Shown here is a 46-nucleotide RNA from Phascolarctos cinereus, a member of the family "Histone 3' UTR stem-loop".
Rfam classes the family as a cis-regulatory element.
A search with the family's covariance model found it, with a score of 36 bits.
The mRNAs of metazoan histone genes lack a poly-A tail. 3' end processing occurs at a site between a highly conserved stem-loop (modelled by this family) and a purine rich region around 20 nts downstream (the histone downstream element, or HDE).
The source organism's lineage runs through Eukaryota, Gnathostomata, Dipnotetrapodomorpha, Diprotodontia and Phascolarctos.

RNA sequence: CCAAAGGCUCUUCUCAGAGCCACCCACUCAUUUCACUGAAAGAGUU
Numbered sequence: 001c002c003a004a005a006g007g008c009u010c011u012u013c014u015c016a017g018a019g020c021c022a023c024c025c026a027c028u029c030a031u032u033u034c035a036c037u038g039a040a041a042g043a044g045u046u
Stems, first nucleotide, its partner, number of pairs: 006021006